The family of this 93-nucleotide RNA sequence from Vagococcus silagei is "azaaromatic riboswitch aptamer (yjdF RNA)". Pairs were carried over by alignment from the consensus structure, which is taken from published work.

[Rfam]
RNA sequence: AUAGUGGAAUAAAAAAUCACAUCUCGGUUAGUAGUCCGAGAACAUUGUAAGUAACCUUCCCUCCCUGGGUCGUCCAUUAUUCUAAUUUUUAAA
Numbered sequence: 001a002u003a004g005u006g007g008a009a010u011a012a013a014a015a016a017u018c019a020c021a022u023c024u025c026g027g028u029u030a031g032u033a034g035u036c037c038g039a040g041a042a043c044a045u046u047g048u049a050a051g052u053a054a055c056c057u058u059c060c061c062u063c064c065c066u067g068g069g070u071c072g073u074c075c076a077u078u079a080u081u082c083u084a085a086u087u088u089u090u091a092a093a
Stems, first nucleotide, its partner, number of pairs: 005084007022041006042048002059069003